[Rfam]
The family of this 226-nucleotide RNA sequence from Solanum commersonii is "MIR8007 microRNA precursor family".

RNA sequence: AUGUGAUACUUUUCAAAUUUCGAGAUUCAAACAAGUCUAUAUUUGACUGUAAAUUUUGCAUAUAUCUUUUAAAUAUUUUGAAUUGUCAAUUAUUGCGACUUGUAGUACUUUUUACGUAGUUUACAAACAUAUAAAUUUCAUUUCAAAAAAAAUUGAUGAUUCCAUGAGCAAAUUUUCAAUCAAACUUAAAUUGUUUGACUCUUGAAAAAUGAAAAGUGUCACAUAA
Numbered sequence: 001a002u003g004u005g006a007u008a009c010u011u012u013u014c015a016a017a018u019u020u021c022g023a024g025a026u027u028c029a030a031a032c033a034a035g036u037c038u039a040u041a042u043u044u045g046a047c048u049g050u051a052a053a054u055u056u057u058g059c060a061u062a063u064a065u066c067u068u069u070u071a072a073a074u075a076u077u078u079u080g081a082a083u084u085g086u087c088a089a090u091u092a093u094u095g096c097g098a099c100u101u102g103u104a105g106u107a108c109u110u111u112u113u114a115c116g117u118a119g120u121u122u123a124c125a126a127a128c129a130u131a132u133a134a135a136u137u138u139c140a141u142u143u144c145a146a147a148a149a150a151a152a153u154u155g156a157u158g159a160u161u162c163c164a165u166g167a168g169c170a171a172a173u174u175u176u177c178a179a180u181c182a183a184a185c186u187u188a189a190a191u192u193g194u195u196u197g198a199c200u201c202u203u204g205a206a207a208a209a210u211g212a213a214a215a216g217u218g219u220c221a222c223a224u225a226a
Base pairs, nucleotide, nucleotide: 001224002223003222004221005220006219007218008217009216010215011214012213013212014211015210018207019206020205021204022203023202024201025200027198028197029196030195031194032193033192035191036190038188039187042184043183044182045181046180048178049177051175052174053173054172055171056170057168059166060165061164064160065159066158068156069155076148077147078146079145080144081143082142084140085139094133095132097130100126101125102124103123104122105121107120108119109118